[Rfam]
RNA sequence: GGCAGGGGCUUGCACCCAGGCUUUCGAUCCGCCGGAAGGGCUCCCGGCGUUUGACGCACCCGGGUGGGUAGCGGAAUCGUUACGGACUUAGCGUUGUUAUAGCGGUCCCUCAAUGGUGCAAGCC
Numbered sequence: 001g002g003c004a005g006g007g008g009c010u011u012g013c014a015c016c017c018a019g020g021c022u023u024u025c026g027a028u029c030c031g032c033c034g035g036a037a038g039g040g041c042u043c044c045c046g047g048c049g050u051u052u053g054a055c056g057c058a059c060c061c062g063g064g065u066g067g068g069u070a071g072c073g074g075a076a077u078c079g080u081u082a083c084g085g086a087c088u089u090a091g092c093g094u095u096g097u098u099a100u101a102g103c104g105g106u107c108c109c110u111c112a113a114u115g116g117u118g119c120a121a122g123c124c
Stems, first nucleotide, its partner, number of pairs: 007124010025079004030049006055073003058069004084109002089105001091103002
Dot-bracket structure: ......((((((((((........((((.((((((........)))))).....(((((((....)))).)))..))))....((...(.((.........)).)..)).....))))))))))
Shown here is a 124-nucleotide RNA sequence, a member of the family "DUF3268 RNA". By type it is a small RNA.